Source information
TPP riboswitch aptamer (THI element): a 107-nucleotide RNA sequence from Nitrosomonas cryotolerans. It scores 62 bits against the family's covariance model. The organism belongs to Nitrosomonas cryotolerans, within Bacteria.
Nucleotides: 107
Stems, first nucleotide, its partner, number of pairs: 006095005011057004016051001017044002021040001063088004069082004
Number, partner (000 for none) and nucleotide at each position: 001000a002000g003000c004000a005000u006095c007094a008093g009092c010091u011057a012056g013055g014054g015000g016051u017044c018043c019000u020000u021040u022000u023000u024000c025000g026000g027000a028000a029000u030000c031000a032000u033000c034000c035000g036000a037000a038000a039000u040021g041000c042000u043018g044017g045000u046000g047000a048000g049000a050000c051016a052000g053000u054014c055013c056012c057011u058000u059000a060000a061000u062000a063088c064087c065086u066085g067000a068000c069082g070081c071080g072079g073000a074000u075000a076000a077000u078000g079072c080071c081070g082069c083000c084000g085066u086065a087064g088063g089000g090000a091010a092009g093008c094007u095006g096000g097000g098000a099000c100000u101000a102000a103000u104000c105000c106000u107000c
The family's consensus secondary structure is taken from published work.